The family of this 61-nucleotide RNA sequence from Mycobacterium sherrisii is "Fluoride riboswitch aptamer (crcB RNA motif)".

RNA sequence: CGCGGUUACGGCGAUGAAGCUCGCCGCAACCGCCGCGCCGGCUGAUGGCUUCUACCAACGA
Number, nucleotide and partner (000 for none) at each position: 001c000002g000003c000004g000005g000006u000007u000008a000009c000010g025011g024012c023013g022014a000015u000016g052017a051018a050019g049020c048021u047022c013023g012024c011025c010026g000027c000028a000029a000030c000031c000032g042033c041034c040035g000036c000037g000038c000039c000040g034041g033042c032043u000044g000045a000046u000047g021048g020049c019050u018051u017052c016053u000054a000055c000056c000057a000058a000059c000060g000061a000
A search with the family's covariance model found it, with a score of 49 bits. The family's consensus secondary structure is taken from published work. Taxonomically the source falls in Mycobacterium simiae complex (Bacteria, Actinomycetota, Mycobacteriaceae, Mycobacterium).